A member of the RNA family "mir-548 microRNA precursor family" from Rhinopithecus roxellana, 84 nucleotides long. It scores 96 bits against the family's covariance model. Rfam 15.1 lists 3,009 matches to the family in 27 species. On this family, see Witten et al., BMC Biol 2010: "Ultra-high throughput sequencing-based small RNA discovery and discrete statistical biomarker analysis in a collection of cervical tumours and matched controls".
RNA sequence: UGUUAGGUUGGUGCGAAAGUAAUGGCGGCUUUUGCCAUUGCAAAUAAUGGCAAAAACCGCCAUUAUUUUCGCACCAACCUAACA
Number, nucleotide and partner (000 for none) at each position: 001u084002g083003u082004u081005a080006g079007g078008u077009u076010g075011g074012u073013g072014c071015g070016a069017a068018a067019g066020u065021a064022a063023u062024g061025g060026c059027g058028g057029c000030u055031u054032u053033u052034g051035c050036c049037a048038u047039u046040g045041c000042a000043a000044a000045u040046a039047a038048u037049g036050g035051c034052a033053a032054a031055a030056a000057c028058c027059g026060c025061c024062a023063u022064u021065a020066u019067u018068u017069u016070c015071g014072c013073a012074c011075c010076a009077a008078c007079c006080u005081a004082a003083c002084a001